[Rfam]
RNA sequence: AAAAAUGGAUGACAACGAGAAAGAGCACGCCAGUAAACAGUCAUGGAAGCCAUCCCAUGAGUGCUGACCAGCGUGCUCUCUCUCGUUGUCAAGCGUGU
Numbered sequence: 001a002a003a004a005a006u007g008g009a010u011g012a013c014a015a016c017g018a019g020a021a022a023g024a025g026c027a028c029g030c031c032a033g034u035a036a037a038c039a040g041u042c043a044u045g046g047a048a049g050c051c052a053u054c055c056c057a058u059g060a061g062u063g064c065u066g067a068c069c070a071g072c073g074u075g076c077u078c079u080c081u082c083u084c085g086u087u088g089u090c091a092a093g094c095g096u097g098u
Stems, first nucleotide, its partner, number of pairs: 010091005016085002020081001023078001025076006033068002
The record is a 98-nucleotide RNA sequence from Dendrobium catenatum, which matches "MIR535 microRNA precursor family" in Rfam. The family's consensus secondary structure was predicted with RNAalifold. Gene Ontology terms of the family: RISC complex and miRNA-mediated post-transcriptional gene silencing. Rfam 15.1 lists 544 matches to the family in 108 species. On this family, see Zeng et al., Nucleic Acids Res 2010: "Conservation and divergence of microRNAs and their functions in Euphorbiaceous plants".